[Rfam]
RNA: Selenocysteine transfer RNA
Organism: Denitratisoma sp. DHT3
RNA sequence: GGAAGAGCGAUGUCCCCGGUGGGGCACCUGGUCUUCAAAACCAGAGAAGUGCUGGCUCAGCGCUUGGUGGGUUCGACUCCUACCUCUUCC
Numbered sequence: 001g002g003a004a005g006a007g008c009g010a011u012g013u014c015c016c017c018g019g020u021g022g023g024g025c026a027c028c029u030g031g032u033c034u035u036c037a038a039a040a041c042c043a044g045a046g047a048a049g050u051g052c053u054g055g056c057u058c059a060g061c062g063c064u065u066g067g068u069g070g071g072u073u074c075g076a077c078u079c080c081u082a083c084c085u086c087u088u089c090c
Base pairs, nucleotide, nucleotide: 001090002089003088004087005086006085007084009083011026012025013024014023015022016021028044029043030042031041032040047065048064049063050062051061068082069081070080071079